[Rfam]
RNA sequence: GUUAGGAACGGCCUCUCGUGAUGACCCUUCUCUCUCUGAUGGCUGUGGUGGUGAUGAUCAUCAAACCAAAGCCUCUAAGAAGUUGACUGAAGAGCCCGUUCCUCC
Dot-bracket structure: ......(((((.(((............................................................................))).))))).....

Shown here is a 105-nucleotide RNA sequence from Buceros rhinoceros, a member of the family "Small nucleolar RNA SNORD125". Rfam 15.1 lists 526 matches to the family in 498 species. Gene Ontology terms of the family: RNA processing and nucleolus. Its Rfam clan is "SNORD61 clan". A reference for the family is Yang et al. (2006), "snoSeeker: an advanced computational package for screening of guide and orphan snoRNA genes in the human genome", Nucleic Acids Res.